[Rfam]
The record is a 121-nucleotide RNA sequence from Paraliobacillus quinghaiensis, which matches "ylbH leader" in Rfam. NCBI's taxonomy places the organism under Bacteria, Bacillati, Bacilli, Bacillaceae, Paraliobacillus. The family's RNA type in Rfam is cis-regulatory leader. Pairs were carried over by alignment from the consensus structure.

RNA sequence: AUAAAAAAAGCCUGCAGAUUUUUGUCUGCAGGCCCUUUUUGAUUUCAUAGAAACCAAAAAGGCAAAGGGAGAGGAGAAACCGGAGGAAGAACUUAUGGGGAAACGUAAGCCUUCUCCGUCU
Numbered sequence: 001a002u003a004a005a006a007a008a009a010g011c012c013u014g015c016a017g018a019u020u021u022u023u024g025u026c027u028g029c030a031g032g033c034c035c036u037u038u039u040u041g042a043u044u045u046c047a048u049a050g051a052a053a054c055c056a057a058a059a060a061g062g063c064a065a066a067g068g069g070a071g072a073g074g075a076g077a078a079a080c081c082g083g084a085g086g087a088a089g090a091a092c093u094u095a096u097g098g099g100g101a102a103a104c105g106u107a108a109g110c111c112u113u114c115u116c117c118g119u120c121u
Stems, first nucleotide, its partner, number of pairs: 011032009033069005039057003043053002081118004086114004092109004
Source information:
Rfam's curators write: This family is a putative regulatory RNA structure that is found upstream of the ylbH gene in B. subtilis and related low GC Gram-positive bacteria. A search with the family's covariance model found it, with a score of 92 bits.